A member of the RNA family "Small nucleolar RNA snoR138" from Raphanus sativus, 157 nucleotides long. Gene Ontology terms of the family: RNA processing and nucleolus. For this family Rfam cites "Mining small RNA sequencing data: a new approach to identify small nucleolar RNAs in Arabidopsis" (Chen and Wu, Nucleic Acids Res, 2009). The family's RNA type in Rfam is H/ACA-box small nucleolar RNA. NCBI's taxonomy places the organism under Eukaryota, Viridiplantae, Tracheophyta, Brassiceae, Raphanus.
[Rfam]
RNA sequence: AUAGCCUCCGAAUAGCGAGAAGGUUCAAUAUCUGAAUACUUUCUGGUUCAGACAGAGGCUUACAUUAAAACACGAAUCAGCUUUGAGGGUUAAAGAGGUUUACACUUUUUGGCCCUUCAAAUCUCCCAUUCCUUUUCUUGGAUAGAUUCGAAUAUCU
Numbered sequence: 001a002u003a004g005c006c007u008c009c010g011a012a013u014a015g016c017g018a019g020a021a022g023g024u025u026c027a028a029u030a031u032c033u034g035a036a037u038a039c040u041u042u043c044u045g046g047u048u049c050a051g052a053c054a055g056a057g058g059c060u061u062a063c064a065u066u067a068a069a070a071c072a073c074g075a076a077u078c079a080g081c082u083u084u085g086a087g088g089g090u091u092a093a094a095g096a097g098g099u100u101u102a103c104a105c106u107u108u109u110u111g112g113c114c115c116u117u118c119a120a121a122u123c124u125c126c127c128a129u130u131c132c133u134u135u136u137c138u139u140g141g142a143u144a145g146a147u148u149c150g151a152a153u154a155u156c157u
Stems, first nucleotide, its partner, number of pairs: 003060006014048003018044004023039002073150006082119001085116001087114001089113001092110006130142003